The family of this 134-nucleotide RNA sequence from Myotis davidii is "Small nucleolar RNA SNORA5". The match comes from Rfam's covariance-model search (117 bits). Pairs were carried over by alignment from the consensus structure, which was predicted with RNAfold. Lineage of the source: Eukaryota > Euteleostomi > Sarcopterygii > Eutheria > Myotis. Rfam describes the family as follows. ACA5 is a member of the H/ACA class of snoRNA that guide the sites of modification of uridines to pseudouridines. Its family is annotated with nucleolus and RNA processing in the Gene Ontology. Rfam classes the family as an H/ACA-box small nucleolar RNA.
RNA sequence: UGCAGCCGUAUCAAAUUCAGUGCCUGCCUACCCAUGGCACGCACUGGCCCAGAAGGUUGCCACAGAAACACUGUGGUGCAUGGGCCCUGAUCCCCUCUGCUGGGCCUCAGGGAUAAGUUUGGCUACAGAUAUCA
Numbered sequence: 001u002g003c004a005g006c007c008g009u010a011u012c013a014a015a016u017u018c019a020g021u022g023c024c025u026g027c028c029u030a031c032c033c034a035u036g037g038c039a040c041g042c043a044c045u046g047g048c049c050c051a052g053a054a055g056g057u058u059g060c061c062a063c064a065g066a067a068a069c070a071c072u073g074u075g076g077u078g079c080a081u082g083g084g085c086c087c088u089g090a091u092c093c094c095c096u097c098u099g100c101u102g103g104g105c106c107u108c109a110g111g112g113a114u115a116a117g118u119u120u121g122g123c124u125a126c127a128g129a130u131a132u133c134a
Stems, first nucleotide, its partner, number of pairs: 002060004018046006025039004073126005085112005